Shown here is a 133-nucleotide RNA from Azospirillum sp. TSO22-1, a member of the family "TPP riboswitch aptamer (THI element)".
RNA sequence: GCCUCGUUCCAGGGGGGUCCCGUAGGGGGCUGAGAUACCACCGGCCAAGGCCCAGACAGGGUCCCGGCGACGUGGUGACCCUUCGAACCUGAUCCGGCUCAUACCGGCGAAGGGAGGGAACCGCUGCGGGCGC
Dot-bracket structure: .....(((((((((..(((((....)))))......(((((..............................)))))..)))).....(((...((((......))))...)))...)))))............